[Rfam]
RNA sequence: GCCUUGGAGCAAAGGUAGACUUACGAAUCGUGUCAGGUCCGGAAGGAAGCAGCACUAAGUUUGCUUUGCUUUGUGCUCCAAGUUUGA
Numbered sequence: 001g002c003c004u005u006g007g008a009g010c011a012a013a014g015g016u017a018g019a020c021u022u023a024c025g026a027a028u029c030g031u032g033u034c035a036g037g038u039c040c041g042g043a044a045g046g047a048a049g050c051a052g053c054a055c056u057a058a059g060u061u062u063g064c065u066u067u068g069c070u071u072u073g074u075g076c077u078c079c080a081a082g083u084u085u086g087a
Stems, first nucleotide, its partner, number of pairs: 003086001004081006010073001012072006020063001023060002030055004038047003
Dot-bracket structure: ..((((((((.((((((..(..((.....((((....(((....)))....))))...))..)...)))))))..))))))....).